Overview: Rfam assigns this 327-nucleotide sequence from Parvibium lacunae to the family "Bacterial RNase P class A". By type it is a ribozyme. The family's consensus secondary structure is taken from published work. The match comes from Rfam's covariance-model search (229 bits).
RNA sequence: AAAGUCGAUCAGGCAAUCGCGUCAAACAUAGCCAUGUUUGACGAGGAAAGUCCGGACUCCAAAGGGCGCCGUAGCAGGUAAUACCUGUCCAUCGUGAGAUGCGGAUUAGAGCAACAGAGACGAGCCGAUUCAGUUCGGGUGAAACGGGCAAUCUCUACGGGGAGCAACACCAAAUAGGCACACGCUGACCCGGCCCGGUGAGUGUGCGGGUAGGUGGCUAGAGUGGGAUAGCGAUAUACCACCAAGAGGAAUGAUUGCCGUCGUAACAACCCAGCUUGCCUGGCGUUGUUGCUGACACAGAAUCCGGCUUAUCGAUCGACUUUGCCU
Numbered sequence: 001a002a003a004g005u006c007g008a009u010c011a012g013g014c015a016a017u018c019g020c021g022u023c024a025a026a027c028a029u030a031g032c033c034a035u036g037u038u039u040g041a042c043g044a045g046g047a048a049a050g051u052c053c054g055g056a057c058u059c060c061a062a063a064g065g066g067c068g069c070c071g072u073a074g075c076a077g078g079u080a081a082u083a084c085c086u087g088u089c090c091a092u093c094g095u096g097a098g099a100u101g102c103g104g105a106u107u108a109g110a111g112c113a114a115c116a117g118a119g120a121c122g123a124g125c126c127g128a129u130u131c132a133g134u135u136c137g138g139g140u141g142a143a144a145c146g147g148g149c150a151a152u153c154u155c156u157a158c159g160g161g162g163a164g165c166a167a168c169a170c171c172a173a174a175u176a177g178g179c180a181c182a183c184g185c186u187g188a189c190c191c192g193g194c195c196c197g198g199u200g201a202g203u204g205u206g207c208g209g210g211u212a213g214g215u216g217g218c219u220a221g222a223g224u225g226g227g228a229u230a231g232c233g234a235u236a237u238a239c240c241a242c243c244a245a246g247a248g249g250a251a252u253g254a255u256u257g258c259c260g261u262c263g264u265a266a267c268a269a270c271c272c273a274g275c276u277u278g279c280c281u282g283g284c285g286u287u288g289u290u291g292c293u294g295a296c297a298c299a300g301a302a303u304c305c306g307g308c309u310u311a312u313c314g315a316u317c318g319a320c321u322u323u324g325c326c327u
Stems, first nucleotide, its partner, number of pairs: 001323010011312001012259007020043009048310003052307005057164004064196004069160005074088005089103001090101004104155002109153002111149002125138004168216004178207006190198002223242004228237003